[Rfam]
RNA sequence: AUUUUCUAAAAGGGGAGCUUGUUCUGCAGGCUGAGAGGAAGUUUGUACUUCGACCCAUGACUUGAUUCGGAUAAUGCCGACGUAAGGAAAUAUUUAAUUUAUACU
Numbered sequence: 001a002u003u004u005u006c007u008a009a010a011a012g013g014g015g016a017g018c019u020u021g022u023u024c025u026g027c028a029g030g031c032u033g034a035g036a037g038g039a040a041g042u043u044u045g046u047a048c049u050u051c052g053a054c055c056c057a058u059g060a061c062u063u064g065a066u067u068c069g070g071a072u073a074a075u076g077c078c079g080a081c082g083u084a085a086g087g088a089a090a091u092a093u094u095u096a097a098u099u100u101a102u103a104c105u
Stems, first nucleotide, its partner, number of pairs: 007092002012056003017031005038051005061086004067080004
RNA: TPP riboswitch aptamer (THI element)
Organism: Clostridium thailandense